Record summary
Rfam assigns this 374-nucleotide sequence from Terribacillus sp. AE2B 122 to the family "Bacterial RNase P class B". Pairs were carried over by alignment from the consensus structure, which is taken from published work. Rfam classes the family as a ribozyme. Rfam links the family to the GO terms ribonuclease P activity, tRNA processing and dimeric ribonuclease P complex. Ribonuclease P (RNase P) is a ubiquitous endoribonuclease, found in archaea, bacteria and eukarya as well as chloroplasts and mitochondria. Its best characterised activity is the generation of mature 5'-ends of tRNAs by cleaving the 5'-leader elements of precursor-tRNAs. The organism belongs to Terribacillus, within Bacteria. The literature on the family includes a 1998 paper in Annu Rev Biochem by Frank and Pace, "Ribonuclease P: unity and diversity in a tRNA processing ribozyme". It scores 322 bits against the family's covariance model.

RNA sequence: AUGUUUGAGUAAUCGCUGCAGUGAUGCAGAGGAAAGUCCAUGCUCACACAGGCUGAGAUGCUUGUAGUGUUCGUGCUUGGCGAAUUCAUAAGCCAAGGUAGCAGUAAUGCUAACGGCAGGCAGAAAGCCUAAGUCUUCGGAUAUGGCUGACAUGUCUUGAAAGUGCCACAGUGACGUAGUCAGCUUGGAAACUUGCUGAGUGGAACGAGGUAAACCCCACGAGUGAGCAACCCAAAUGUUGGUAGGGGCACCCUUGAUUAUGGGAAUUCAACCUAAAAAGGGACAAGCGAUGAGCUUGUAGAUAGAUGAUUACUGCCGUUGUACGAGGCUGACCACCGCUCGCAGUGCAUCGGUACAGAACAUGGCUUACAGAA
Numbered sequence: 001a002u003g004u005u006u007g008a009g010u011a012a013u014c015g016c017u018g019c020a021g022u023g024a025u026g027c028a029g030a031g032g033a034a035a036g037u038c039c040a041u042g043c044u045c046a047c048a049c050a051g052g053c054u055g056a057g058a059u060g061c062u063u064g065u066a067g068u069g070u071u072c073g074u075g076c077u078u079g080g081c082g083a084a085u086u087c088a089u090a091a092g093c094c095a096a097g098g099u100a101g102c103a104g105u106a107a108u109g110c111u112a113a114c115g116g117c118a119g120g121c122a123g124a125a126a127g128c129c130u131a132a133g134u135c136u137u138c139g140g141a142u143a144u145g146g147c148u149g150a151c152a153u154g155u156c157u158u159g160a161a162a163g164u165g166c167c168a169c170a171g172u173g174a175c176g177u178a179g180u181c182a183g184c185u186u187g188g189a190a191a192c193u194u195g196c197u198g199a200g201u202g203g204a205a206c207g208a209g210g211u212a213a214a215c216c217c218c219a220c221g222a223g224u225g226a227g228c229a230a231c232c233c234a235a236a237u238g239u240u241g242g243u244a245g246g247g248g249c250a251c252c253c254u255u256g257a258u259u260a261u262g263g264g265a266a267u268u269c270a271a272c273c274u275a276a277a278a279a280g281g282g283a284c285a286a287g288c289g290a291u292g293a294g295c296u297u298g299u300a301g302a303u304a305g306a307u308g309a310u311u312a313c314u315g316c317c318g319u320u321g322u323a324c325g326a327g328g329c330u331g332a333c334c335a336c337c338g339c340u341c342g343c344a345g346u347g348c349a350u351c352g353g354u355a356c357a358g359a360a361c362a363u364g365g366c367u368u369a370c371a372g373a374a
Stems, first nucleotide, its partner, number of pairs: 004374003007370001008314007016029005034368003038365005043227005048065006071222005076097006098114001099112005115217002118157004126148004133142003163215002165211003180199005187192001231247003251282005258277002283299006316353003320349005